[Rfam]
RNA: Bacterial RNase P class A
RNA sequence: UCAGUCGGCCGGGCGGCCGCUCCGGACCCCGCGUCCGGGGAGGAAAGUCCGGGCUCCAUGGAGAGACGGUGCCGGAUAACGUCCGGCGGGGGCGACCCCAGGGACAGUGCCACAGAGAGCAGACCGCCCCGAACGCAGGUUUCCUGCGCUCGGGGUGAGGGUGAAAGGGUGCGGUAAGAGCGCACCGCGGACGCGGCAACGCGGACGGCACGGCAAACCCCACCGGGAGCAAAACCGAAUAGGGGCGACACGCCCGUUCCCGCGAGGGCGCGGGCAGGCCCACUCUCCAGGCUCGUCGCCCGGGUUGGUUGCUCGAGGCGGUCGGCAACGAUCGUCCCAGAGGAAUGGCCGCCACGUUCGGGUGCCGCAAGGCGCCCGGGCCCUACAGAACCCGGCUUACAGGCCGGCUGAUCCG
Numbered sequence: 001u002c003a004g005u006c007g008g009c010c011g012g013g014c015g016g017c018c019g020c021u022c023c024g025g026a027c028c029c030c031g032c033g034u035c036c037g038g039g040g041a042g043g044a045a046a047g048u049c050c051g052g053g054c055u056c057c058a059u060g061g062a063g064a065g066a067c068g069g070u071g072c073c074g075g076a077u078a079a080c081g082u083c084c085g086g087c088g089g090g091g092g093c094g095a096c097c098c099c100a101g102g103g104a105c106a107g108u109g110c111c112a113c114a115g116a117g118a119g120c121a122g123a124c125c126g127c128c129c130c131g132a133a134c135g136c137a138g139g140u141u142u143c144c145u146g147c148g149c150u151c152g153g154g155g156u157g158a159g160g161g162u163g164a165a166a167g168g169g170u171g172c173g174g175u176a177a178g179a180g181c182g183c184a185c186c187g188c189g190g191a192c193g194c195g196g197c198a199a200c201g202c203g204g205a206c207g208g209c210a211c212g213g214c215a216a217a218c219c220c221c222a223c224c225g226g227g228a229g230c231a232a233a234a235c236c237g238a239a240u241a242g243g244g245g246c247g248a249c250a251c252g253c254c255c256g257u258u259c260c261c262g263c264g265a266g267g268g269c270g271c272g273g274g275c276a277g278g279c280c281c282a283c284u285c286u287c288c289a290g291g292c293u294c295g296u297c298g299c300c301c302g303g304g305u306u307g308g309u310u311g312c313u314c315g316a317g318g319c320g321g322u323c324g325g326c327a328a329c330g331a332u333c334g335u336c337c338c339a340g341a342g343g344a345a346u347g348g349c350c351g352c353c354a355c356g357u358u359c360g361g362g363u364g365c366c367g368c369a370a371g372g373c374g375c376c377c378g379g380g381c382c383c384u385a386c387a388g389a390a391c392c393c394g395g396c397u398u399a400c401a402g403g404c405c406g407g408c409u410g411a412u413c414c415g
Stems, first nucleotide, its partner, number of pairs: 001411010011400001012353007020040008045398003049395005054229004063286001065284001067225005072086005087101001088099004102220002107218002109214003124160002126156007134148005168186006187209001188207002192203004233310004243301006281291001317336008